[Rfam]
RNA: Potassium channel RNA editing signal
RNA sequence: CUGGGCUACGGAGACAUGUACCCCAAGACGUGGUCAGGCAUGCUGGUAGGGGCACUGUGUGCACUGGCUGGCGUGCUCACCAUCGCCAUGCCGGUGCCUGUCAUCGUCAACAAC
Numbered sequence: 001c002u003g004g005g006c007u008a009c010g011g012a013g014a015c016a017u018g019u020a021c022c023c024c025a026a027g028a029c030g031u032g033g034u035c036a037g038g039c040a041u042g043c044u045g046g047u048a049g050g051g052g053c054a055c056u057g058u059g060u061g062c063a064c065u066g067g068c069u070g071g072c073g074u075g076c077u078c079a080c081c082a083u084c085g086c087c088a089u090g091c092c093g094g095u096g097c098c099u100g101u102c103a104u105c106g107u108c109a110a111c112a113a114c
Base pairs, nucleotide, nucleotide: 002113004111008107009106010105011104013102014101015100016099018097019096020095021094037077038076039075040074050062